[Rfam]
RNA sequence: UGAGCUGUGGCGGGAGAGUCCGGGGCUUGUACCCGGCGCCGAAGGAGCAACACCUCCCCGGGAAUCUCUCAGGCACCCGUACCGCUAUGGCAAG
Numbered sequence: 001u002g003a004g005c006u007g008u009g010g011c012g013g014g015a016g017a018g019u020c021c022g023g024g025g026c027u028u029g030u031a032c033c034c035g036g037c038g039c040c041g042a043a044g045g046a047g048c049a050a051c052a053c054c055u056c057c058c059c060g061g062g063a064a065u066c067u068c069u070c071a072g073g074c075a076c077c078c079g080u081a082c083c084g085c086u087a088u089g090g091c092a093a094g
Stems, first nucleotide, its partner, number of pairs: 006089008020036004038074003041070002045068003051061001